[Rfam]
RNA: DUF2693-FD RNA
RNA sequence: GUCCUGUUGACAGCUUGUAACUGGCAUCCGGUAGUGAGAAUCGGGCAGGGC
Numbered sequence: 001g002u003c004c005u006g007u008u009g010a011c012a013g014c015u016u017g018u019a020a021c022u023g024g025c026a027u028c029c030g031g032u033a034g035u036g037a038g039a040a041u042c043g044g045g046c047a048g049g050g051c
Stems, first nucleotide, its partner, number of pairs: 001051007011023002019035001025038001028044005